[Rfam]
RNA sequence: CCGGGUGGCCGGGCGACCGCUGGCCCACAAAGGCUGGAGGAAAGUCCGGGCUCCACGGGAAUGCGGUGCCGGCCAACGGCCGGCGGGCAGAGGGGGAAACCCCGAGGCCCAGGGAAAGUGCCACAGAGAGCAGACCGCCACGGCAGGGGGAGACCUCUCCCGCGGCAAGGGUGAAAGGGUGGGGCAAGAGCCCACCGCGCCCCUGGCGACAGGGGCGGCAUGGCAAACCCCACCGGGAGCAAGGCCGAAUAGGGGCGGCCGGCGUGGCGGGUCACACCGCCGACGCAGGGGCAUUCCCGCCCCGCCGCCCGGGUUGGCCGCGUGAACCCUGCGGCGACGCAGGGUCCAGAGGAAUGGUCGUCCAGCGCCGAAAGGCGCGGACAGAACCCGGCUUACAGGCCACCCGGCGCC
Numbered sequence: 001c002c003g004g005g006u007g008g009c010c011g012g013g014c015g016a017c018c019g020c021u022g023g024c025c026c027a028c029a030a031a032g033g034c035u036g037g038a039g040g041a042a043a044g045u046c047c048g049g050g051c052u053c054c055a056c057g058g059g060a061a062u063g064c065g066g067u068g069c070c071g072g073c074c075a076a077c078g079g080c081c082g083g084c085g086g087g088c089a090g091a092g093g094g095g096g097a098a099a100c101c102c103c104g105a106g107g108c109c110c111a112g113g114g115a116a117a118g119u120g121c122c123a124c125a126g127a128g129a130g131c132a133g134a135c136c137g138c139c140a141c142g143g144c145a146g147g148g149g150g151a152g153a154c155c156u157c158u159c160c161c162g163c164g165g166c167a168a169g170g171g172u173g174a175a176a177g178g179g180u181g182g183g184g185c186a187a188g189a190g191c192c193c194a195c196c197g198c199g200c201c202c203c204u205g206g207c208g209a210c211a212g213g214g215g216c217g218g219c220a221u222g223g224c225a226a227a228c229c230c231c232a233c234c235g236g237g238a239g240c241a242a243g244g245c246c247g248a249a250u251a252g253g254g255g256c257g258g259c260c261g262g263c264g265u266g267g268c269g270g271g272u273c274a275c276a277c278c279g280c281c282g283a284c285g286c287a288g289g290g291g292c293a294u295u296c297c298c299g300c301c302c303c304g305c306c307g308c309c310c311g312g313g314u315u316g317g318c319c320g321c322g323u324g325a326a327c328c329c330u331g332c333g334g335c336g337a338c339g340c341a342g343g344g345u346c347c348a349g350a351g352g353a354a355u356g357g358u359c360g361u362c363c364a365g366c367g368c369c370g371a372a373a374g375g376c377g378c379g380g381a382c383a384g385a386a387c388c389c390g391g392c393u394u395a396c397a398g399g400c401c402a403c404c405c406g407g408c409g410c411c
Base pairs, nucleotide, nucleotide: 001407002406003405004404005403006402007401008400009399010398011396012362013361014360015359016358017357018356020037021036022035023034024033025032042394043393044392046391047390048389049388050387051239052238053237054236059297061295064235065234066233067232068231069083070082071081072080073079084112085110086109087108088107113230114229118228119227120224121223122222135170136169137166138165139164141162142161143160145158146157147156148155149154178196179195180194181193182192183191197219198217199216200215201214202213203212204211205210243319244318245317246316253310254309255308256307257306258305288303289302290301291300292299326345327344328343329342330341331340332339333338
A member of the RNA family "Bacterial RNase P class A" from Falsiroseomonas bella, 411 nucleotides long. By type it is a ribozyme. Rfam's curators write: Ribonuclease P (RNase P) is a ubiquitous endoribonuclease, found in archaea, bacteria and eukarya as well as chloroplasts and mitochondria. Gene Ontology terms of the family: ribonuclease P activity, dimeric ribonuclease P complex and tRNA processing. Lineage of the source: Bacteria > Pseudomonadota > Alphaproteobacteria > Acetobacterales > Falsiroseomonas.